Small Cajal body-specific RNA 7: a 321-nucleotide RNA sequence from Podiceps cristatus. Rfam classes the family as a small Cajal body RNA. It scores 184 bits against the family's covariance model. NCBI's taxonomy places the organism under Eukaryota, Chordata, Archelosauria, Saurischia, Podiceps.
RNA sequence: UGGAAGUGAUGAAAUAGAGAUAAUUGGAUGUCUCUCUGAAUGGAGUGUGUGUGAUAAACGGAAUUUAAACCAAGUCAGACUGGGGGUGGGGUGUGGGGAAUGUGUGUGUGUGUGCACGUGUGUAUAGAAAAGGCUUUAAAUGGGGGCACUGAUAGUGCAGUGCUGAUUCCGGAGUGCAUCUGAGGCGUGUUGUUAUGUUUUGGGUGCCACUAUACAACAUUGCCGAUGAUUAAAGCCCAAAACAAGCCCACCAAGAGAAGCCUAGGCAUCCUAAAUCUCUAACAGGUUCAUUAAUGAAAGUGGUCCUGUGAUCUGAUCUGA
Numbered sequence: 001u002g003g004a005a006g007u008g009a010u011g012a013a014a015u016a017g018a019g020a021u022a023a024u025u026g027g028a029u030g031u032c033u034c035u036c037u038g039a040a041u042g043g044a045g046u047g048u049g050u051g052u053g054a055u056a057a058a059c060g061g062a063a064u065u066u067a068a069a070c071c072a073a074g075u076c077a078g079a080c081u082g083g084g085g086g087u088g089g090g091g092u093g094u095g096g097g098g099a100a101u102g103u104g105u106g107u108g109u110g111u112g113u114g115c116a117c118g119u120g121u122g123u124a125u126a127g128a129a130a131a132g133g134c135u136u137u138a139a140a141u142g143g144g145g146g147c148a149c150u151g152a153u154a155g156u157g158c159a160g161u162g163c164u165g166a167u168u169c170c171g172g173a174g175u176g177c178a179u180c181u182g183a184g185g186c187g188u189g190u191u192g193u194u195a196u197g198u199u200u201u202g203g204g205u206g207c208c209a210c211u212a213u214a215c216a217a218c219a220u221u222g223c224c225g226a227u228g229a230u231u232a233a234a235g236c237c238c239a240a241a242a243c244a245a246g247c248c249c250a251c252c253a254a255g256a257g258a259a260g261c262c263u264a265g266g267c268a269u270c271c272u273a274a275a276u277c278u279c280u281a282a283c284a285g286g287u288u289c290a291u292u293a294a295u296g297a298a299a300g301u302g303g304u305c306c307u308g309u310g311a312u313c314u315g316a317u318c319u320g321a
Stems, first nucleotide, its partner, number of pairs: 001320004188219006194212001196209002199206001